[Rfam]
RNA: Small nucleolar RNA SNORA1
RNA sequence: AGCCUCAUUCUCAAGGAGAUUGGGCACUGUGGGCCAUGGUGCCCAGAAAUGGUUAAAGGGGCUAAAUUGAGACACAAGUUAUGGGUCUGCAACACCAAAUGUAUUGCAGUGGUGACAAUGAGAACUGUAAUGUUU
Dot-bracket structure: .(((.(.(............(((((((...........)))))))..........).).)))...........(((...........(((.((...............)).)))...........))).......